[Rfam]
RNA: Small nucleolar RNA SNORA15
Organism: Castor canadensis
RNA sequence: AUGGUAUCCUAAGUCCAUCCAUCUGAUUCAAUAGUUUCUAUAUAGUCAGGCACCAUGCAAAAGUGAAGUCUUCAUUUUAAAAUGACAAUGAUAGUAUGCUAAGUUUUCCAUAGUGUACCAUUAUUAAAAGUGAAUACAAAA
Numbered sequence: 001a002u003g004g005u006a007u008c009c010u011a012a013g014u015c016c017a018u019c020c021a022u023c024u025g026a027u028u029c030a031a032u033a034g035u036u037u038c039u040a041u042a043u044a045g046u047c048a049g050g051c052a053c054c055a056u057g058c059a060a061a062a063g064u065g066a067a068g069u070c071u072u073c074a075u076u077u078u079a080a081a082a083u084g085a086c087a088a089u090g091a092u093a094g095u096a097u098g099c100u101a102a103g104u105u106u107u108c109c110a111u112a113g114u115g116u117a118c119c120a121u122u123a124u125u126a127a128a129a130g131u132g133a134a135u136a137c138a139a140a141a
Base pairs, nucleotide, nucleotide: 001056002055003054004053009045010044011043013041014040071134072133073132075129076128077127078126079125080124089123090122091121092120094118095117096116097115098114099113100112101111